RNA: DUF805 RNA
RNA sequence: CCAUAGUGAAGCAGAACUCACUGUAAAAAAACGAGGCGGAUUCCGAAAAGCCUUACGAGUAGGAGAAAA
Numbered sequence: 001c002c003a004u005a006g007u008g009a010a011g012c013a014g015a016a017c018u019c020a021c022u023g024u025a026a027a028a029a030a031a032c033g034a035g036g037c038g039g040a041u042u043c044c045g046a047a048a049a050g051c052c053u054u055a056c057g058a059g060u061a062g063g064a065g066a067a068a069a
Base pairs, nucleotide, nucleotide: 006021007020008019009018035052036051037050042063043062